[Rfam]
RNA sequence: AACAGCAGUGCGGGAGAGUCCGUCGGGAUCAAGGCCGGCCCGGCGGCGCCGAAGGGGCAACCUCCCCGGAACCUCUCAGGCACCCAGACCGCACUGUGCUG
Numbered sequence: 001a002a003c004a005g006c007a008g009u010g011c012g013g014g015a016g017a018g019u020c021c022g023u024c025g026g027g028a029u030c031a032a033g034g035c036c037g038g039c040c041c042g043g044c045g046g047c048g049c050c051g052a053a054g055g056g057g058c059a060a061c062c063u064c065c066c067c068g069g070a071a072c073c074u075c076u077c078a079g080g081c082a083c084c085c086a087g088a089c090c091g092c093a094c095u096g097u098g099c100u101g
Stems, first nucleotide, its partner, number of pairs: 006096008020046008048081003051077002055075003061069002

The record is a 101-nucleotide RNA sequence from Microlunatus parietis, which matches "Glycine riboswitch aptamer" in Rfam. Rfam 15.1 lists 9,425 matches to the family in 5,228 species. A search with the family's covariance model found it, with a score of 64 bits.